[Rfam]
Rfam assigns this 127-nucleotide RNA from Paenibacillus uliginis to the family "pan motif". A search with the family's covariance model found it, with a score of 40 bits. The source organism's lineage runs through Bacteria, Bacilli, Caryophanales, Paenibacillaceae and Paenibacillus uliginis. It is annotated as a cis-regulatory element.
RNA sequence: GAGGCGGUAUCUUCUACGGGAAGAACUGCACUCUGGGGACAGAAUUGAACUUUAAGGAACACCUUCUUAACUGCUUUUGCCGGUUACGUUGGAUUCUGCUCUGAGCCGAAAGGACCGAGACAGAAGG
Numbered sequence: 001g002a003g004g005c006g007g008u009a010u011c012u013u014c015u016a017c018g019g020g021a022a023g024a025a026c027u028g029c030a031c032u033c034u035g036g037g038g039a040c041a042g043a044a045u046u047g048a049a050c051u052u053u054a055a056g057g058a059a060c061a062c063c064u065u066c067u068u069a070a071c072u073g074c075u076u077u078u079g080c081c082g083g084u085u086a087c088g089u090u091g092g093a094u095u096c097u098g099c100u101c102u103g104a105g106c107c108g109a110a111a112g113g114a115c116c117g118a119g120a121c122a123g124a125a126g127g
Stems, first nucleotide, its partner, number of pairs: 001033003004029005010024004096123003099119003103115001106113002